RNA: Mammalian CPEB3 ribozyme
Organism: Merluccius polli
RNA sequence: UCCGGCCAUGGUGGCCAUGGUAGAAGCGUUCCUGUCGCGGCCCCUGUUUAAACUAAUUCUACC
Dot-bracket structure: .........[[.[[[[..((((((((((.......)))]]]]]]...(...)....)))))))